[Rfam]
RNA sequence: UUUGAGGGGAAUGUUGUCUGGCUCGAGGUCUAUAUCGCUGCAGAGCUUUUCUUUCCCCCUCCCUUCAUGUCUCCUGGUGAAAGAAAUCUCGGACCAGGCUUCAUUCCCCCCAAU
Numbered sequence: 001u002u003u004g005a006g007g008g009g010a011a012u013g014u015u016g017u018c019u020g021g022c023u024c025g026a027g028g029u030c031u032a033u034a035u036c037g038c039u040g041c042a043g044a045g046c047u048u049u050u051c052u053u054u055c056c057c058c059c060u061c062c063c064u065u066c067a068u069g070u071c072u073c074c075u076g077g078u079g080a081a082a083g084a085a086a087u088c089u090c091g092g093a094c095c096a097g098g099c100u101u102c103a104u105u106c107c108c109c110c111c112a113a114u
Stems, first nucleotide, its partner, number of pairs: 002113003006109008016099006024091003
RNA: mir-166 microRNA precursor family
Organism: Cocos nucifera